[Rfam]
Nucleotides: 129
Stems, first nucleotide, its partner, number of pairs: 001128004
Number, partner (000 for none) and nucleotide at each position: 001128u002127c003126c004125c005000g006000a007000u008000g009000a010000u011000g012000a013000a014000a015000a016000c017000c018000c019000g020000u021000u022000g023000c024000g025000u026000c027000u028000u029000a030000c031000c032000c033000u034000c035000u036000g037000u038000c039000c040000u041000g042000g043000c044000c045000c046000c047000a048000g049000a050000a051000c052000c053000u054000g055000c056000a057000a058000a059000g060000g061000u062000u063000g064000a065000a066000c067000c068000c069000a070000c071000u072000g073000g074000g075000g076000c077000c078000a079000g080000c081000a082000g083000a084000g085000g086000g087000a088000g089000a090000g091000g092000a093000g094000g095000a096000a097000g098000c099000c100000u101000u102000u103000g104000c105000u106000c107000c108000u109000g110000a111000a112000g113000g114000a115000a116000c117000a118000g119000u120000c121000u122000g123000a124000u125004g126003g127002g128001a129000c
Rfam assigns this 129-nucleotide RNA sequence from Varanus komodoensis to the family "Small nucleolar RNA SNORD22". Rfam 15.1 lists 1,081 matches to the family in 414 species. The match comes from Rfam's covariance-model search (107 bits). It is annotated as a C/D-box small nucleolar RNA. Pairs were carried over by alignment from the consensus structure, which was predicted with PFOLD.